[Rfam]
RNA sequence: AGAGGUCACAAGUGUGAGGCCAUAGCAUAAGUGCAUGGCACAUCCCUGUCAGAUUCCAACAAAUCUGCAAAUUCUGCU
Numbered sequence: 001a002g003a004g005g006u007c008a009c010a011a012g013u014g015u016g017a018g019g020c021c022a023u024a025g026c027a028u029a030a031g032u033g034c035a036u037g038g039c040a041c042a043u044c045c046c047u048g049u050c051a052g053a054u055u056c057c058a059a060c061a062a063a064u065c066u067g068c069a070a071a072u073u074c075u076g077c078u
Stems, first nucleotide, its partner, number of pairs: 016046001018045002024078004029073002031041003050067006
The family of this 78-nucleotide RNA from Alligator mississippiensis is "Mammalian CPEB3 ribozyme". The match comes from Rfam's covariance-model search (38 bits).